[Rfam]
RNA sequence: GUCUGACACGGACCUACGGUAGCAAGUCUUGCUCCGACAUUUGGUCGCGGUGCCAUGAC
Numbered sequence: 001g002u003c004u005g006a007c008a009c010g011g012a013c014c015u016a017c018g019g020u021a022g023c024a025a026g027u028c029u030u031g032c033u034c035c036g037a038c039a040u041u042u043g044g045u046c047g048c049g050g051u052g053c054c055a056u057g058a059c
Base pairs, nucleotide, nucleotide: 007049009047010046011045013043016041018035019034021033022032023031024030025029